A member of the RNA family "Small nucleolar RNA SNORA31" from Sphaeramia orbicularis, 132 nucleotides long. It scores 81 bits against the family's covariance model. Rfam describes the family as follows. ACA31 (SNORA31) belongs to the H/ACA class of snoRNAs which are thought to guide the sites of modification of uridines to pseudouridines. ACA31 is predicted to guide the pseudouridylation of U3713 in 28S rRNA and U218 in 18S rRNA. This family includes the mouse homologue snoMBI-161.
RNA sequence: UUGCAUCCACUGAUAGACCUGAAGCAGACAUCCUUGGCUUCUGGUUUGCACAGAGAUGCUAAAUUUAACCUUCCUUGCGCUUUCUGACUGCUUGGCUCUAUAGCAGUACAGAUUGAAAUGAGGAAUACAUGC
Numbered sequence: 001u002u003g004c005a006u007c008c009a010c011u012g013a014u015a016g017a018c019c020u021g022a023a024g025c026a027g028a029c030a031u032c033c034u035u036g037g038c039u040u041c042u043g044g045u046u047u048g049c050a051c052a053g054a055g056a057u058g059c060u061a062a063a064u065u066u067a068a069c070c071u072u073c074c075u076u077g078c079g080c081u082u083u084c085u086g087a088c089u090g091c092u093u094g095g096c097u098c099u100a101u102a103g104c105a106g107u108a109c110a111g112a113u114u115g116a117a118a119u120g121a122g123g124a125a126u127a128c129a130u131g132c
Base pairs, nucleotide, nucleotide: 003059004058005057006056007055011050012049014048015047016046017045018044019043022040023039024038025037027035028034072124073123074122075121076120077119080115083112084111085110086109088106089105090104091103092102